[Rfam]
RNA sequence: UGAAUAGCUGUGAAGGGAAAUGAAGUAAGCGGGAAAAGAUGCCUGCAGAGAGCCGGCGGCUGGUGUGAGCCGGUGCUCUUUUCCGCCCAAAUUACAUCCUGGAGCUGCCCGCCGAAAGCGUUUUGCCGUGUAAGCCGGGCCGUGUGCGCACGUUACCGCGCGGAGGUAUCUUUUAUUUGCUUGUCCUAUAAAAUGUACCCGUAAGGCCGUCUUCGUGAGGGGACGGUGAACUGAGGUGGUACCGCGGAAUUUCCGCCCUCUGC
Numbered sequence: 001u002g003a004a005u006a007g008c009u010g011u012g013a014a015g016g017g018a019a020a021u022g023a024a025g026u027a028a029g030c031g032g033g034a035a036a037a038g039a040u041g042c043c044u045g046c047a048g049a050g051a052g053c054c055g056g057c058g059g060c061u062g063g064u065g066u067g068a069g070c071c072g073g074u075g076c077u078c079u080u081u082u083c084c085g086c087c088c089a090a091a092u093u094a095c096a097u098c099c100u101g102g103a104g105c106u107g108c109c110c111g112c113c114g115a116a117a118g119c120g121u122u123u124u125g126c127c128g129u130g131u132a133a134g135c136c137g138g139g140c141c142g143u144g145u146g147c148g149c150a151c152g153u154u155a156c157c158g159c160g161c162g163g164a165g166g167u168a169u170c171u172u173u174u175a176u177u178u179g180c181u182u183g184u185c186c187u188a189u190a191a192a193a194u195g196u197a198c199c200c201g202u203a204a205g206g207c208c209g210u211c212u213u214c215g216u217g218a219g220g221g222g223a224c225g226g227u228g229a230a231c232u233g234a235g236g237u238g239g240u241a242c243c244g245c246g247g248a249a250u251u252u253c254c255g256c257c258c259u260c261u262g263c
Stems, first nucleotide, its partner, number of pairs: 007105002015100004029086005041077001043075001052074006108139004113134001141152003206227007233260004244256005

The record is a 263-nucleotide RNA sequence from Ruminococcaceae bacterium CPB6, which matches "T-box leader" in Rfam. Rfam classes the family as a cis-regulatory leader. It scores 101 bits against the family's covariance model. NCBI's taxonomy places the organism under Bacteria, Bacillota, Clostridia, Eubacteriales, Oscillospiraceae. The family's consensus secondary structure is taken from published work.